[Rfam]
RNA sequence: AGCCUGUGAUGACAAAAUCAAAUACUUUUCUGACACCUCGUAUGAGAGCUUUUAGCUCCUGAUUCGAACUUUUAGCUGAGGCUC
Numbered sequence: 001a002g003c004c005u006g007u008g009a010u011g012a013c014a015a016a017a018u019c020a021a022a023u024a025c026u027u028u029u030c031u032g033a034c035a036c037c038u039c040g041u042a043u044g045a046g047a048g049c050u051u052u053u054a055g056c057u058c059c060u061g062a063u064u065c066g067a068a069c070u071u072u073u074a075g076c077u078g079a080g081g082c083u084c
Base pairs, nucleotide, nucleotide: 001083002082003081004080048056049055050054
A member of the RNA family "Small nucleolar RNA SNORD60" from Dissostichus mawsoni, 84 nucleotides long. The family's RNA type in Rfam is C/D-box small nucleolar RNA. Its family is annotated with RNA processing and nucleolus in the Gene Ontology. The match comes from Rfam's covariance-model search (56 bits). The literature on the family includes a 2002 paper in Mol Cell Biol by Galardi et al., "Purified box C/D snoRNPs are able to reproduce site-specific 2'-O-methylation of target RNA in vitro". Its Rfam clan is "SNORD60 clan".